[Rfam]
Nucleotides: 306
Base pairs, nucleotide, nucleotide: 001306002305003304004303007300008299009298012261013260014259015258016257021061022060023059024058034048035047036046037045038044071290072289073288074287075286081238082237083236084235091105092104093103094102095101106121107120108119109118110117111116122234123233124232125231126230128228143220144219145218262278263277264276265275266274267273
Number, partner (000 for none) and nucleotide at each position: 001306g002305c003304g004303g005000c006000a007300g008299g009298a010000a011000g012261c013260u014259u015258a016257c017000u018000g019000u020000a021061g022060a023059g024058g025000u026000c027000a028000c029000g030000u031000g032000c033000u034048g035047g036046g037045u038044g039000c040000u041000c042000g043000u044038c045037a046036c047035u048034c049000u050000u051000c052000c053000a054000a055000u056000c057000a058024c059023c060022u061021c062000g063000g064000g065000g066000a067000a068000g069000g070000u071290c072289u073288g074287a075286g076000a077000c078000a079000a080000g081238a082237g083236c084235c085000a086000a087000u088000c089000g090000c091105u092104g093103u094102c095101c096000u097000c098000g099000c100000a101095g102094g103093a104092c105091a106121u107120c108119a109118u110117c111116u112000g113000a114000a115000c116111a117110g118109a119108u120107g121106a122234g123233c124232g125231a126230g127000c128228g129000c130000a131000c132000a133000g134000g135000c136000a137000u138000c139000a140000u141000g142000g143220g144219u145218c146000a147000c148000a149000g150000c151000g152000c153000g154000g155000u156000g157000u158000u159000c160000u161000c162000g163000c164000a165000c166000g167000a168000g169000a170000c171000g172000u173000u174000g175000a176000u177000a178000c179000u180000c181000g182000c183000g184000c185000a186000g187000u188000u189000u190000c191000a192000g193000c194000a195000g196000a197000u198000c199000a200000a201000c202000u203000g204000a205000u206000g207000c208000g209000a210000u211000c212000u213000c214000c215000g216000c217000u218145g219144a220143c221000u222000u223000g224000g225000a226000a227000a228128c229000a230126c231125u232124c233123g234122c235084g236083g237082c238081u239000g240000g241000c242000g243000a244000a245000u246000g247000a248000g249000u250000u251000c252000a253000a254000u255000g256000u257016g258015u259014a260013a261012g262278c263277u264276a265275g266274u267273a268000c269000a270000a271000g272000a273267u274266g275265c276264u277263a278262g279000a280000a281000c282000c283000c284000a285000a286075u287074u288073c289072a290071g291000a292000c293000u294000a295000c296000u297000c298009u299008c300007c301000c302000u303004c304003c305002g306001c
This 306-nucleotide sequence from Sinocyclocheilus grahami belongs to the Rfam family "Nuclear RNase P". The match comes from Rfam's covariance-model search (200 bits). Ribonuclease P (RNase P) is a ubiquitous endoribonuclease, found in archaea, bacteria and eukarya as well as chloroplasts and mitochondria. Gene Ontology terms of the family: ribonuclease P complex, ribonuclease P activity and tRNA processing. NCBI's taxonomy places the organism under Eukaryota, Opisthokonta, Actinopterygii, Osteoglossocephalai, Sinocyclocheilus. Rfam classes the family as a ribozyme.